This 115-nucleotide sequence from Nocardia pseudobrasiliensis belongs to the Rfam family "SAM (S-adenosyl methionine) riboswitch aptamer".
From the family's description: SAM-IV is a mRNA element that regulates gene expression via direct sensing of S-adenosylmethionine (SAM or AdoMet).
[Rfam]
RNA sequence: GGUCAUGAGUACCAGCGCUAAGCCCCGGCUAGCUGGUCGGCAACCCUCUUUCGUGGCGGGGUGCUCCGGGUGACGACCUGGCCACGCGCCGAAACCGGCGCGGCAAGUGCGGAUU
Numbered sequence: 001g002g003u004c005a006u007g008a009g010u011a012c013c014a015g016c017g018c019u020a021a022g023c024c025c026c027g028g029c030u031a032g033c034u035g036g037u038c039g040g041c042a043a044c045c046c047u048c049u050u051u052c053g054u055g056g057c058g059g060g061g062u063g064c065u066c067c068g069g070g071u072g073a074c075g076a077c078c079u080g081g082c083c084a085c086g087c088g089c090c091g092a093a094a095c096c097g098g099c100g101c102g103g104c105a106a107g108u109g110c111g112g113a114u115u
Stems, first nucleotide, its partner, number of pairs: 001078004009038001011037006021030002039065003044061003048056002081104003086101006
The family's consensus secondary structure is taken from published work. The match comes from Rfam's covariance-model search (104 bits).